RNA sequence: GGUUGCCAGGCAGUGUAGUUAGCUGAUUGCCUGAAGCCACAAUCACUAACCACACAGCCAGGUAAAG
Numbered sequence: 001g002g003u004u005g006c007c008a009g010g011c012a013g014u015g016u017a018g019u020u021a022g023c024u025g026a027u028u029g030c031c032u033g034a035a036g037c038c039a040c041a042a043u044c045a046c047u048a049a050c051c052a053c054a055c056a057g058c059c060a061g062g063u064a065a066a067g
Base pairs, nucleotide, nucleotide: 003065004064005063006062009059010058013055014054015053016052018050019049020048021047022046024045025044026043027042028041029040
Shown here is a 67-nucleotide sequence from Neodrepanis coruscans, a member of the family "mir-34 microRNA precursor family". For this family Rfam cites "Numerous microRNPs in neuronal cells containing novel microRNAs" (Dostie et al., RNA, 2003). Clan: mir-34 clan. Rfam describes the family as follows. Human mir-34a was discovered computationally and later experimentally verified. The mature sequence is excised from the 5' arm of the hairpin. The base pairs follow the family's consensus structure, which was predicted with RNAalifold.